[Rfam]
RNA sequence: GCGACCGGAACGCCGAAUCUCCCGCGCCGCGGGAGAGCCGGGGACCCACACCCCCGGGGUGAAUCGGCGCGCCGCGCGCGCCGUAGGGCGACUCCUGGCCCGAACCCGUCAGCUAACCCGGUAGGCGUGCGUGGAGAGGAGAG
Numbered sequence: 001g002c003g004a005c006c007g008g009a010a011c012g013c014c015g016a017a018u019c020u021c022c023c024g025c026g027c028c029g030c031g032g033g034a035g036a037g038c039c040g041g042g043g044a045c046c047c048a049c050a051c052c053c054c055c056g057g058g059g060u061g062a063a064u065c066g067g068c069g070c071g072c073c074g075c076g077c078g079c080g081c082c083g084u085a086g087g088g089c090g091a092c093u094c095c096u097g098g099c100c101c102g103a104a105c106c107c108g109u110c111a112g113c114u115a116a117c118c119c120g121g122u123a124g125g126c127g128u129g130c131g132u133g134g135a136g137a138g139g140a141g142a143g
Stems, first nucleotide, its partner, number of pairs: 011127004018036008037122006047056001057107003065083004086101004
RNA: c-di-AMP riboswitch aptamer (ydaO/yuaA leader)
Organism: Actinomadura meyerae